[Rfam]
RNA sequence: GGCGAUAAACGCCGCGUGAAAUAAGCGUUUCGGACCCGGGGGCAGUACCCGGCGCCUCCACCAUUUCACCUCCAACCCGAACAGGGGCGGAGUCGAUGGGGGCGAACCAGGAUCGACGAGCGUGGUAAAGGCGCGGUUUUUGCCCGGUAUGGUUCCGCCGUGACGGGCCAUUCACAAGUGCUAACGAUAACACCGUUACACUCGCUGCUGCCGCCUAA
Numbered sequence: 001g002g003c004g005a006u007a008a009a010c011g012c013c014g015c016g017u018g019a020a021a022u023a024a025g026c027g028u029u030u031c032g033g034a035c036c037c038g039g040g041g042g043c044a045g046u047a048c049c050c051g052g053c054g055c056c057u058c059c060a061c062c063a064u065u066u067c068a069c070c071u072c073c074a075a076c077c078c079g080a081a082c083a084g085g086g087g088c089g090g091a092g093u094c095g096a097u098g099g100g101g102g103c104g105a106a107c108c109a110g111g112a113u114c115g116a117c118g119a120g121c122g123u124g125g126u127a128a129a130g131g132c133g134c135g136g137u138u139u140u141u142g143c144c145c146g147g148u149a150u151g152g153u154u155c156c157g158c159c160g161u162g163a164c165g166g167g168c169c170a171u172u173c174a175c176a177a178g179u180g181c182u183a184a185c186g187a188u189a190a191c192a193c194c195g196u197u198a199c200a201c202u203c204g205c206u207g208c209u210g211c212c213g214c215c216u217a218a
Stems, first nucleotide, its partner, number of pairs: 001144005014134004026122003030119003036052005053104007145160004

Shown here is a 218-nucleotide RNA from Reyranella soli, a member of the family "permuted transfer-messenger RNA". Rfam describes the family as follows. Bacterial tmRNA, also known as 10Sa RNA or SsrA, is named for its dual tRNA and mRNA-like properties. Its family is annotated with RNA catabolic process in the Gene Ontology.